[Rfam]
RNA sequence: AUAUCUUGGUAAACGCGGCAUAGUAUUAUGUUGAGGAAAGUCCAUGCUCGCACUAACCUGUGAUGGUAGUAGUGUUCAUGCCGAGGAAAUAAAUAACCGAGGGUAAGUUUUAACUUAACGGCUCCGAAAUAACCUCAAAUGGUUAAAUUAGGUAUAAAAGUGCCAAAGAGACGAGUACAUUUGGAAACGAAUGUAGUGGAACGUGGUAAACCCCAUGAGCGAGAAACCCAAAAUUGGUAGGGGAGUCUUUAGAAACAAAUUAAGAAGGGCCUAAAGGACAGAAAUGUAGAUAAAUGUUUACCGCCUAGAAAUAGGUACAGAACAUGGCUUAUAAGA
Numbered sequence: 001a002u003a004u005c006u007u008g009g010u011a012a013a014c015g016c017g018g019c020a021u022a023g024u025a026u027u028a029u030g031u032u033g034a035g036g037a038a039a040g041u042c043c044a045u046g047c048u049c050g051c052a053c054u055a056a057c058c059u060g061u062g063a064u065g066g067u068a069g070u071a072g073u074g075u076u077c078a079u080g081c082c083g084a085g086g087a088a089a090u091a092a093a094u095a096a097c098c099g100a101g102g103g104u105a106a107g108u109u110u111u112a113a114c115u116u117a118a119c120g121g122c123u124c125c126g127a128a129a130u131a132a133c134c135u136c137a138a139a140u141g142g143u144u145a146a147a148u149u150a151g152g153u154a155u156a157a158a159a160g161u162g163c164c165a166a167a168g169a170g171a172c173g174a175g176u177a178c179a180u181u182u183g184g185a186a187a188c189g190a191a192u193g194u195a196g197u198g199g200a201a202c203g204u205g206g207u208a209a210a211c212c213c214c215a216u217g218a219g220c221g222a223g224a225a226a227c228c229c230a231a232a233a234u235u236g237g238u239a240g241g242g243g244a245g246u247c248u249u250u251a252g253a254a255a256c257a258a259a260u261u262a263a264g265a266a267g268g269g270c271c272u273a274a275a276g277g278a279c280a281g282a283a284a285u286g287u288a289g290a291u292a293a294a295u296g297u298u299u300a301c302c303g304c305c306u307a308g309a310a311a312u313a314g315g316u317a318c319a320g321a322a323c324a325u326g327g328c329u330u331a332u333a334a335g336a
Stems, first nucleotide, its partner, number of pairs: 004336003008302007016033006038330003042327005047223005052070004057066002076218005081102002085098002103119001104117005120213002124152002131144004160211002162207003176195008227242003246277007278287003304315004

The family of this 336-nucleotide RNA from Firmicutes bacterium CAG:582 is "Bacterial RNase P class B". Pairs were carried over by alignment from the consensus structure, which is taken from published work. A reference for the family is Frank and Pace (1998), "Ribonuclease P: unity and diversity in a tRNA processing ribozyme", Annu Rev Biochem. A search with the family's covariance model found it, with a score of 257 bits. The family's RNA type in Rfam is ribozyme.